RNA sequence: AUAGUCGGAUUCGCAUAAAUCUACAUGUAUUGAGGUGGAUUGGAGUGAAACUUUAAUUAAAUUCCACCUCAAUCUACCCGAACACAUGUGGAUUGACGUGAAUUCGACA
Dot-bracket structure: ...(((((((((((.(.(((((((((((.((...(((((((((.(((.................))).)))))))))...)).))))))))))).).))))))))))).
Numbered sequence: 001a002u003a004g005u006c007g008g009a010u011u012c013g014c015a016u017a018a019a020u021c022u023a024c025a026u027g028u029a030u031u032g033a034g035g036u037g038g039a040u041u042g043g044a045g046u047g048a049a050a051c052u053u054u055a056a057u058u059a060a061a062u063u064c065c066a067c068c069u070c071a072a073u074c075u076a077c078c079c080g081a082a083c084a085c086a087u088g089u090g091g092a093u094u095g096a097c098g099u100g101a102a103u104u105c106g107a108c109a
Stems, first nucleotide, its partner, number of pairs: 004108011016096001018094011030082002035077009045067003
MIR5565 microRNA precursor family: a 109-nucleotide sequence from Miscanthus lutarioriparius. Gene Ontology terms of the family: RISC complex and miRNA-mediated post-transcriptional gene silencing. Taxonomically the source falls in Miscanthus (Eukaryota, Streptophytina, Poales, Andropogonodae). The family's consensus secondary structure was predicted with RNAalifold.